Alphaproteobacterial ar15: a 109-nucleotide RNA from Rhizobium sp. LC145.
For this family Rfam cites "A survey of sRNA families in alpha-proteobacteria" (del Val et al., RNA Biol, 2012).
It is annotated as a small RNA.
A search with the family's covariance model found it, with a score of 72 bits.
The source organism's lineage runs through Bacteria, Pseudomonadati, Alphaproteobacteria, Hyphomicrobiales and Rhizobium.
RNA sequence: AGCUGGCGCCCCUUCUUUGACGACUCCCCGUUGUCCCGCGCCGGCUGUUCCCCUCUGGAGGUUUUGACCUUCACACCUAGGGCCCCGGAGCGAUCCGAGGGCCUAUUUU
Numbered sequence: 001a002g003c004u005g006g007c008g009c010c011c012c013u014u015c016u017u018u019g020a021c022g023a024c025u026c027c028c029c030g031u032u033g034u035c036c037c038g039c040g041c042c043g044g045c046u047g048u049u050c051c052c053c054u055c056u057g058g059a060g061g062u063u064u065u066g067a068c069c070u071u072c073a074c075a076c077c078u079a080g081g082g083c084c085c086c087g088g089a090g091c092g093a094u095c096c097g098a099g100g101g102c103c104u105a106u107u108u109u
Stems, first nucleotide, its partner, number of pairs: 001046005007040003019035003056073007080104006086097004